A member of the RNA family "C0465 RNA" from Escherichia coli, 78 nucleotides long. On this family, see Tjaden et al., Nucleic Acids Res 2002: "Transcriptome analysis of Escherichia coli using high-density oligonucleotide probe arrays". The sequence is in the family's curated seed alignment. The family's RNA type in Rfam is small RNA. NCBI's taxonomy places the organism under Bacteria, Pseudomonadota, Gammaproteobacteria, Enterobacterales, Escherichia coli. This family consists of a number of bacterial RNA genes of 78 bases in length which are found between the tar and cheW genes in E. coli and Shigella flexneri. The function of this RNA is unknown.
Nucleotides: 078
Base pairs, nucleotide, nucleotide: 001008002007013032014031015030020028021027037078038077039076040075041074042073047071048070049069050068051067052066053065054064055063
Number, partner (000 for none) and nucleotide at each position: 001008g002007g003000g004000a005000a006000a007002c008001u009000u010000u011000a012000u013032u014031g015030c016000u017000g018000a019000u020028g021027c022000c023000a024000c025000c026000c027021g028020c029000c030015g031014c032013g033000c034000a035000a036000u037078u038077g039076a040075a041074a042073u043000a044000a045000a046000a047071a048070a049069c050068c051067c052066g053065a054064u055063g056000c057000g058000c059000a060000g061000a062000u063055c064054a065053u066052c067051g068050g069049g070048u071047u072000c073042a074041u075040u076039u077038c078037a